[Rfam]
RNA sequence: GGUCUGUGAUGAACAGUAAAAGGUCUGAUUAUCCUAAGGCUUGCACUUCCAUGACCUUUUCUCCCAGCAGUUUCUCACCAGUCACGGCACAGUAAUGGUGUGGCUGGCAGAGUGUUUGCUGACAGCUGGUGAUGUGUGCAGUUCAUGUUAACCUGAAGUAUCAGAGACAUGACUGGCAUCAGCAUCCAACAGUCUUACCUGAAGGAGUUUGGGGUUUUGGAUUGCUAUAACUUGGACACGUGAUCUGACUUUUCUGCUGAGACC
Number, nucleotide and partner (000 for none) at each position: 001g264002g263003u262004c261005u000006g000007u000008g000009a000010u000011g000012a000013a000014c000015a000016g000017u000018a000019a000020a000021a000022g000023g000024u000025c000026u000027g000028a000029u000030u000031a000032u000033c000034c000035u000036a000037a246038g245039g244040c000041u242042u000043g000044c000045a000046c000047u000048u221049c220050c219051a218052u000053g216054a215055c000056c000057u000058u000059u000060u000061c207062u206063c205064c204065c121066a120067g119068c118069a117070g116071u000072u000073u000074c000075u000076c000077a000078c107079c106080a105081g104082u103083c102084a101085c100086g099087g000088c000089a000090c000091a000092g000093u000094a000095a000096u000097g000098g000099u086100g085101u084102g083103g082104c081105u080106g079107g078108c000109a000110g000111a000112g000113u000114g000115u000116u070117u069118g068119c067120u066121g065122a000123c000124a000125g000126c000127u000128g000129g187130u000131g186132a185133u184134g183135u182136g000137u000138g000139c000140a000141g000142u000143u000144c171145a170146u169147g168148u167149u166150a000151a000152c164153c000154u000155g000156a000157a000158g000159u000160a000161u000162c000163a000164g152165a000166g149167a148168c147169a146170u145171g144172a000173c000174u000175g000176g000177c000178a000179u000180c000181a000182g135183c134184a133185u132186c131187c129188a000189a000190c000191a000192g000193u000194c000195u000196u000197a000198c000199c000200u000201g000202a000203a000204g064205g063206a062207g061208u000209u000210u000211g000212g000213g000214g000215u054216u053217u000218u051219g050220g049221a048222u000223u000224g000225c000226u000227a000228u000229a000230a000231c000232u000233u000234g000235g000236a000237c000238a000239c000240g000241u000242g041243a000244u039245c038246u037247g000248a000249c000250u000251u000252u000253u000254c000255u000256g000257c000258u000259g000260a000261g004262a003263c002264c001
The family of this 264-nucleotide sequence from Nyctibius bracteatus is "Small Cajal body specific RNA 6".
A search with the family's covariance model found it, with a score of 112 bits.
The base pairs follow the family's consensus structure, which is taken from published work.
Rfam 15.1 lists 1,309 matches to the family in 627 species.
Rfam links the family to the GO terms nucleolus and RNA processing.
NCBI's taxonomy places the organism under Eukaryota, Eumetazoa, Craniata, Coelurosauria, Nyctibius.
Rfam describes the family as follows. U88 is small Cajal body specific RNA (scaRNA). scaRNAs are a novel class of small nuclear RNAs which localise to the Cajal bodies. U88 is found associated with both fibrillarin and Gar1p and co-localises with coilin in Cajal bodies.
The family's RNA type in Rfam is small Cajal body RNA.